[Rfam]
RNA sequence: UGGGUGGGCAUAUUACAGCGCUUUUGUGAGAAAGCGCUGUAAUAUGCCCACCCAUAUAUGAAAUUAUGGGUGGGCAUUUUACAGCGCUUUUUUGAGAAAGCGCUGUAAAAUGCACACCCAUAACU
Numbered sequence: 001u002g003g004g005u006g007g008g009c010a011u012a013u014u015a016c017a018g019c020g021c022u023u024u025u026g027u028g029a030g031a032a033a034g035c036g037c038u039g040u041a042a043u044a045u046g047c048c049c050a051c052c053c054a055u056a057u058a059u060g061a062a063a064u065u066a067u068g069g070g071u072g073g074g075c076a077u078u079u080u081a082c083a084g085c086g087c088u089u090u091u092u093u094g095a096g097a098a099a100g101c102g103c104u105g106u107a108a109a110a111u112g113c114a115c116a117c118c119c120a121u122a123a124c125u
Base pairs, nucleotide, nucleotide: 003052004051005050006049007048008047016039017038018037019036020035021034022033023032024031065122066121067120068119069118070117071116072115074113075112081106082105083104084103085102086101087100088099089098090097091096
Rfam assigns this 125-nucleotide RNA sequence from Cicer arietinum to the family "Small nucleolar RNA SNORA69". The family has 16 seed sequences and 808 matches in Rfam 15.1. The base pairs follow the family's consensus structure, which was predicted with PFOLD. By type it is an H/ACA-box small nucleolar RNA. The source organism's lineage runs through Eukaryota, Spermatophyta, Magnoliopsida, Fabaceae and Cicer. U69 is a member of the H/ACA class of small nucleolar RNAs (snoRNAs) which act as guides in the the modification of uridines to pseudouridines. The match comes from Rfam's covariance-model search (51 bits).